Notes:
Shown here is a 98-nucleotide sequence from Clostridium paraputrificum, a member of the family "Purine riboswitch aptamer". Pairs were carried over by alignment from the consensus structure, which is taken from published work.
RNA sequence: AUAUUCGUAAAGCGAAUAACUCAUAUAAUGUGUCAAUAAGGGUCACAGUUUCUACCAGAUACCGUAAAUAUCUGACUAUGAGUGGACUGAAUGUAUAU
Numbered sequence: 001a002u003a004u005u006c007g008u009a010a011a012g013c014g015a016a017u018a019a020c021u022c023a024u025a026u027a028a029u030g031u032g033u034c035a036a037u038a039a040g041g042g043u044c045a046c047a048g049u050u051u052c053u054a055c056c057a058g059a060u061a062c063c064g065u066a067a068a069u070a071u072c073u074g075a076c077u078a079u080g081a082g083u084g085g086a087c088u089g090a091a092u093g094u095a096u097a098u
Stems, first nucleotide, its partner, number of pairs: 019083007029047004034042001056074006